[Rfam]
RNA sequence: CACACAUCCUAUUCACAACGGAUCGUCCGGCACGUUCCUGCCGGUGAAGGAGAAAUAA
Number, nucleotide and partner (000 for none) at each position: 001c000002a000003c000004a000005c000006a000007u000008c000009c050010u049011a000012u048013u047014c046015a045016c000017a000018a000019c000020g000021g000022a000023u000024c000025g000026u000027c044028c043029g042030g041031c040032a039033c000034g000035u000036u000037c000038c000039u032040g031041c030042c029043g028044g027045u015046g014047a013048a012049g010050g009051a000052g000053a000054a000055a000056u000057a000058a000

msiK RNA: a 58-nucleotide sequence from Cryobacterium frigoriphilum. The base pairs follow the family's consensus structure, which is taken from published work. It scores 62 bits against the family's covariance model. NCBI's taxonomy places the organism under Bacteria, Bacillati, Actinomycetota, Micrococcales, Cryobacterium.